[Rfam]
A member of the RNA family "mir-6131 microRNA precursor family" from Homo sapiens, 105 nucleotides long.

RNA sequence: UCCCGCAUUCCCUCUGCUUUGGUCAGGUGGUGCCCUCCUUCCAUGGGUAGAGCCAGAGAUGGUGGGUUCUGGCUGGUCAGAUGGGAGUGGACAGAGACCCGGGGU
Numbered sequence: 001u002c003c004c005g006c007a008u009u010c011c012c013u014c015u016g017c018u019u020u021g022g023u024c025a026g027g028u029g030g031u032g033c034c035c036u037c038c039u040u041c042c043a044u045g046g047g048u049a050g051a052g053c054c055a056g057a058g059a060u061g062g063u064g065g066g067u068u069c070u071g072g073c074u075g076g077u078c079a080g081a082u083g084g085g086a087g088u089g090g091a092c093a094g095a096g097a098c099c100c101g102g103g104g105u
Stems, first nucleotide, its partner, number of pairs: 001104005006094001009091003012087004018081009028071003032067004037062002040059002044055003

Source information: The sequence is in the family's curated seed alignment.